RNA sequence: GUGUCCCUCAGAGAUCCUCCGAACACUUCAUUGGGAUGUUUUGUUUAGGAUUUCCUACUGAAGUGUUUGGAGGAACUCCAAGUGUCGC
Numbered sequence: 001g002u003g004u005c006c007c008u009c010a011g012a013g014a015u016c017c018u019c020c021g022a023a024c025a026c027u028u029c030a031u032u033g034g035g036a037u038g039u040u041u042u043g044u045u046u047a048g049g050a051u052u053u054c055c056u057a058c059u060g061a062a063g064u065g066u067u068u069g070g071a072g073g074a075a076c077u078c079c080a081a082g083u084g085u086c087g088c
Stems, first nucleotide, its partner, number of pairs: 005084001007082002011078003015074006022068002024065007032057004
The record is an 88-nucleotide RNA sequence from Cynara cardunculus, which matches "mir-395 microRNA precursor family" in Rfam. Rfam 15.1 lists 2,798 matches to the family in 234 species. On this family, see Jones-Rhoades and Bartel, Mol Cell 2004: "Computational Identification of Plant MicroRNAs and Their Targets, Including a Stress-Induced miRNA". The family's consensus secondary structure was predicted with PFOLD. Rfam's curators write: mir-395 was identified in both Arabidopsis thaliana and Oryza sativa computationally and was later experimentally verified. mir-395 is thought to target mRNAs coding for ATP sulphurylases. The mature sequence is excised from the 3' arm of the hairpin.